[Rfam]
RNA sequence: UCACAGAGUAGAAGCGGUCAGAGCCUUCGAAAGAAGCGCUCCGGGCAUUGCUCGACAA
Numbered sequence: 001u002c003a004c005a006g007a008g009u010a011g012a013a014g015c016g017g018u019c020a021g022a023g024c025c026u027u028c029g030a031a032a033g034a035a036g037c038g039c040u041c042c043g044g045g046c047a048u049u050g051c052u053c054g055a056c057a058a
Stems, first nucleotide, its partner, number of pairs: 006053005015043001018045002021041004026036002
RNA: Xanthine riboswitch aptamer (NMT1 RNA)
Organism: Qingshengfaniella alkalisoli